[Rfam]
RNA sequence: CCCCUUUUCGCCCGGGGCGCCACGCCCUAUAUUCAUCUCGCCGUCGCAAGACGGAUAUGGCGAUAAAUGGUCAUCGGAAUAAGCCUUUCGGACCCGGGGGCGGUACCCGGCGCCUCCACCAAAACCCGGCUCUGGUCGGGCUUUGGCGGGGGCGAAACAGGAUCGACGAGGGUGUAAAGGGUGUGCUUUUGCCCGGCAUGGUUCCGCCGUUAUCGGGCCGUUGCAAUAGUUGCCAACGACAACUUUGCUGAGGUCCGCGCGGCCGCGUAAGCGGUCGAGCAUCCUCGACUCAAGCCCUUGCGGUUAGCCCCGUAAGGCGGGGCCCGGAGGCGCCUGGCAACAGAAGCCUCCACC
Numbered sequence: 001c002c003c004c005u006u007u008u009c010g011c012c013c014g015g016g017g018c019g020c021c022a023c024g025c026c027c028u029a030u031a032u033u034c035a036u037c038u039c040g041c042c043g044u045c046g047c048a049a050g051a052c053g054g055a056u057a058u059g060g061c062g063a064u065a066a067a068u069g070g071u072c073a074u075c076g077g078a079a080u081a082a083g084c085c086u087u088u089c090g091g092a093c094c095c096g097g098g099g100g101c102g103g104u105a106c107c108c109g110g111c112g113c114c115u116c117c118a119c120c121a122a123a124a125c126c127c128g129g130c131u132c133u134g135g136u137c138g139g140g141c142u143u144u145g146g147c148g149g150g151g152g153c154g155a156a157a158c159a160g161g162a163u164c165g166a167c168g169a170g171g172g173u174g175u176a177a178a179g180g181g182u183g184u185g186c187u188u189u190u191g192c193c194c195g196g197c198a199u200g201g202u203u204c205c206g207c208c209g210u211u212a213u214c215g216g217g218c219c220g221u222u223g224c225a226a227u228a229g230u231u232g233c234c235a236a237c238g239a240c241a242a243c244u245u246u247g248c249u250g251a252g253g254u255c256c257g258c259g260c261g262g263c264c265g266c267g268u269a270a271g272c273g274g275u276c277g278a279g280c281a282u283c284c285u286c287g288a289c290u291c292a293a294g295c296c297c298u299u300g301c302g303g304u305u306a307g308c309c310c311c312g313u314a315a316g317g318c319g320g321g322g323c324c325c326g327g328a329g330g331c332g333c334c335u336g337g338c339a340a341c342a343g344a345a346g347c348c349u350c351c352a353c354c
Stems, first nucleotide, its partner, number of pairs: 041054004059193005069186001072183004084172003088169003094110005111154007194209004199220003203217003320335004326351006
Rfam assigns this 354-nucleotide sequence from Camelimonas lactis to the family "Alphaproteobacteria transfer-messenger RNA". From the family's description: Bacterial tmRNA, also known as 10Sa RNA or SsrA, is named for its dual tRNA and mRNA-like properties. Rfam classes the family as a non-coding RNA gene. The base pairs follow the family's consensus structure, which is taken from published work. Lineage of the source: Bacteria > Alphaproteobacteria > Hyphomicrobiales > Chelatococcaceae > Camelimonas.